[Rfam]
RNA sequence: GCGCGGCCUCCGCCGAGUCCGGCGUGCCGCCCGUGGCAGCUGGAGCCGGGGACCCAACCGACCUCGGGGUGAAUCGGCUCAGCCGCCUUGAAGGGCUUCAACCGCCUUGAAGGGCAACGACCGUAGGGCAAACCUUCCGAAGCACGCGCCCGAACCCGACAGCUAACUCGGUAGGCGGAACACGGAAGGAGA
Numbered sequence: 001g002c003g004c005g006g007c008c009u010c011c012g013c014c015g016a017g018u019c020c021g022g023c024g025u026g027c028c029g030c031c032c033g034u035g036g037c038a039g040c041u042g043g044a045g046c047c048g049g050g051g052a053c054c055c056a057a058c059c060g061a062c063c064u065c066g067g068g069g070u071g072a073a074u075c076g077g078c079u080c081a082g083c084c085g086c087c088u089u090g091a092a093g094g095g096c097u098u099c100a101a102c103c104g105c106c107u108u109g110a111a112g113g114g115c116a117a118c119g120a121c122c123g124u125a126g127g128g129c130a131a132a133c134c135u136u137c138c139g140a141a142g143c144a145c146g147c148g149c150c151c152g153a154a155c156c157c158g159a160c161a162g163c164u165a166a167c168u169c170g171g172u173a174g175g176c177g178g179a180a181c182a183c184g185g186a187a188g189g190a191g192a
Base pairs, nucleotide, nucleotide: 011177012176013175014174018044019043020042021041022040023039045172046171047170048169049168050167055066067157068156069155075123076122077121126151127150128149129148
Source information: The record is a 192-nucleotide RNA from Streptomyces avermitilis, which matches "c-di-AMP riboswitch aptamer (ydaO/yuaA leader)" in Rfam. Taxonomically the source falls in Streptomyces avermitilis (Bacteria, Bacillati, Actinomycetes, Streptomyces). It is one of the family's seed sequences.